[Rfam]
RNA sequence: GAAUUUUUUUUCGAUAUAAAACACUCAUGUCAAUAAAAUGAUUUGAAUAUGUU
Numbered sequence: 001g002a003a004u005u006u007u008u009u010u011u012c013g014a015u016a017u018a019a020a021a022c023a024c025u026c027a028u029g030u031c032a033a034u035a036a037a038a039u040g041a042u043u044u045g046a047a048u049a050u051g052u053u
Stems, first nucleotide, its partner, number of pairs: 011033001013031005
Plastid-atpF group II-D1 intron: a 53-nucleotide RNA sequence from Malus domestica. Rfam's curators write: Plastid atpF is a non-coding RNA (ncRNA) recognised in plastids. It has been reported in the intron group II-D1 region of ATP synthase (atpF) genes. The source organism's lineage runs through Eukaryota, Tracheophyta, Euphyllophyta, Rosales and Malus. Gene Ontology term of the family: Group II intron splicing. It scores 63 bits against the family's covariance model.